[Rfam]
RNA sequence: UGAUAAUAUUGUUUUGCUAUUUUUGGUCAAUAAUGCAAUGACAUGUAGAAAAAUUAUUAUGCAUGUCAUUGCACUAUUGAUCGAGAAUAGCAAACAAAUUUAUUC
Numbered sequence: 001u002g003a004u005a006a007u008a009u010u011g012u013u014u015u016g017c018u019a020u021u022u023u024u025g026g027u028c029a030a031u032a033a034u035g036c037a038a039u040g041a042c043a044u045g046u047a048g049a050a051a052a053a054u055u056a057u058u059a060u061g062c063a064u065g066u067c068a069u070u071g072c073a074c075u076a077u078u079g080a081u082c083g084a085g086a087a088u089a090g091c092a093a094a095c096a097a098a099u100u101u102a103u104u105c
Stems, first nucleotide, its partner, number of pairs: 002104004013094008022085011034073014049058002
This 105-nucleotide RNA sequence from Prunus persica belongs to the Rfam family "MIR6274 microRNA precursor family". The base pairs follow the family's consensus structure, which was predicted with RNAalifold. A search with the family's covariance model found it, with a score of 84 bits. The family has 2 seed sequences and 342 matches in Rfam 15.1. The organism belongs to Prunus, within Eukaryota.